[Rfam]
RNA: rne-II RNA
RNA sequence: GAUCGUGUAGGGUGGAGAUGCACAACCUCCGGACUGUGUAGCAUCAGGCUUUUACAGACGCUUCCCGUCCACAUCCGCAGGUUGAUUCCUCCUCCUGAUUCAGUGCUUCUGCAUGCCAGUUGUAGCAGGAGACGUUCGUCGCGAGCCCGGUCCGUUUGAUCGGCACUCGCUUGACAAUGCAGCGGCCGCGCCGCUGUUGGACGCACCCGACACCGACCGUGAGAGUCGUGUGUGCCGCUUGCCGUUUCCGAAGCCCGGAAACCAA
Numbered sequence: 001g002a003u004c005g006u007g008u009a010g011g012g013u014g015g016a017g018a019u020g021c022a023c024a025a026c027c028u029c030c031g032g033a034c035u036g037u038g039u040a041g042c043a044u045c046a047g048g049c050u051u052u053u054a055c056a057g058a059c060g061c062u063u064c065c066c067g068u069c070c071a072c073a074u075c076c077g078c079a080g081g082u083u084g085a086u087u088c089c090u091c092c093u094c095c096u097g098a099u100u101c102a103g104u105g106c107u108u109c110u111g112c113a114u115g116c117c118a119g120u121u122g123u124a125g126c127a128g129g130a131g132a133c134g135u136u137c138g139u140c141g142c143g144a145g146c147c148c149g150g151u152c153c154g155u156u157u158g159a160u161c162g163g164c165a166c167u168c169g170c171u172u173g174a175c176a177a178u179g180c181a182g183c184g185g186c187c188g189c190g191c192c193g194c195u196g197u198u199g200g201a202c203g204c205a206c207c208c209g210a211c212a213c214c215g216a217c218c219g220u221g222a223g224a225g226u227c228g229u230g231u232g233u234g235c236c237g238c239u240u241g242c243c244g245u246u247u248c249c250g251a252a253g254c255c256c257g258g259a260a261a262c263c264a265a
Stems, first nucleotide, its partner, number of pairs: 014092004023084006030077003036072003040050003057069004093130005133203004138175003141170004148162005179197007210233004214228004244262007